This 79-nucleotide RNA sequence from Salvator merianae belongs to the Rfam family "Small nucleolar RNA SNORD79". Its Rfam clan is "SNORD74 clan". About the family: snoRNA U79 or Z22 is found in intron 7 of the gas5 gene in humans and is also present in mice. By type it is a C/D-box small nucleolar RNA.

RNA sequence: UACUGUUAAUGAUGAAAUUGUAUAGAACAAUGGGAAUCUCUCUGAAAUAUAGUGAAGAGGAUUUUCUACUGAAACAGUG
Numbered sequence: 001u002a003c004u005g006u007u008a009a010u011g012a013u014g015a016a017a018u019u020g021u022a023u024a025g026a027a028c029a030a031u032g033g034g035a036a037u038c039u040c041u042c043u044g045a046a047a048u049a050u051a052g053u054g055a056a057g058a059g060g061a062u063u064u065u066c067u068a069c070u071g072a073a074a075c076a077g078u079g
Stems, first nucleotide, its partner, number of pairs: 001079007